[Rfam]
RNA sequence: GGCAGAUGAUGGCUUUACUCACGAUGGUCUGCGGAUGCCCUGGGCGCUGCCGAGAAUGCCGACGGCUCAGCUGAUGCCAGGCC
Numbered sequence: 001g002g003c004a005g006a007u008g009a010u011g012g013c014u015u016u017a018c019u020c021a022c023g024a025u026g027g028u029c030u031g032c033g034g035a036u037g038c039c040c041u042g043g044g045c046g047c048u049g050c051c052g053a054g055a056a057u058g059c060c061g062a063c064g065g066c067u068c069a070g071c072u073g074a075u076g077c078c079a080g081g082c083c
Stems, first nucleotide, its partner, number of pairs: 001078004
This 83-nucleotide RNA from Orycteropus afer belongs to the Rfam family "Small nucleolar RNA SNORD35".
Lineage of the source: Eukaryota > Chordata > Teleostomi > Mammalia > Orycteropus afer.
The match comes from Rfam's covariance-model search (76 bits).
Gene Ontology terms of the family: nucleolus and RNA processing.